[Rfam]
RNA: U12 minor spliceosomal RNA
Organism: Agrilus planipennis
Nucleotides: 153
Base pairs, nucleotide, nucleotide: 004023005022006021007020008019033054034053035052036051037050040047059073060072061071062070088153089152090151091150095148096147097146098145099144100143101142103137104136107134108133109132110131112129113128114127115126116125
Number, partner (000 for none) and nucleotide at each position: 001000g002000u003000g004023c005022c006021u007020u008019a009000a010000a011000c012000u013000a014000c015000u016000g017000a018000g019008u020007a021006a022005g023004g024000a025000a026000a027000a028000u029000a030000u031000a032000c033054a034053u035052g036051c037050c038000u039000u040047g041000g042000u043000a044000a045000c046000g047040c048000u049000c050037g051036g052035c053034g054033u055000a056000c057000a058000u059073a060072c061071u062070a063000g064000u065000u066000u067000c068000a069000c070062u071061a072060g073059u074000c075000c076000u077000u078000a079000a080000u081000u082000u083000u084000u085000g086000a087000a088153g089152g090151g091150g092000c093000a094000a095148a096147g097146g098145u099144c100143g101142u102000c103137c104136c105000g106000u107134g108133g109132a110131u111000a112129g113128c114127u115126g116125c117000c118000u119000a120000c121000u122000u123000u124000u125116g126115c127114a128113g129112c130000a131110g132109u133108c134107c135000u136104g137103g138000u139000g140000a141000a142101g143100c144099g145098a146097u147096c148095u149000a150091c151090c152089c153088c